mir-23 microRNA precursor family: an 81-nucleotide RNA sequence from Megalops atlanticus.
Its family is annotated with gene silencing by miRNA and RISC complex in the Gene Ontology.
NCBI's taxonomy places the organism under Eukaryota, Opisthokonta, Bilateria, Vertebrata, Megalops.
[Rfam]
RNA sequence: GAUGGAGAGGGUUCCUGGCACCGUGAUUUGAGUCGGAAACAAAAAAAGCAAAAUCACAUUGCCAGGGAUUUCCACUCUGUA
Numbered sequence: 001g002a003u004g005g006a007g008a009g010g011g012u013u014c015c016u017g018g019c020a021c022c023g024u025g026a027u028u029u030g031a032g033u034c035g036g037a038a039a040c041a042a043a044a045a046a047a048g049c050a051a052a053a054u055c056a057c058a059u060u061g062c063c064a065g066g067g068a069u070u071u072c073c074a075c076u077c078u079g080u081a
Stems, first nucleotide, its partner, number of pairs: 002080001004078003009073002011069010023057007

For this family Rfam cites "The developmental miRNA profiles of zebrafish as determined by small RNA cloning" (Chen et al., Genes Dev, 2005).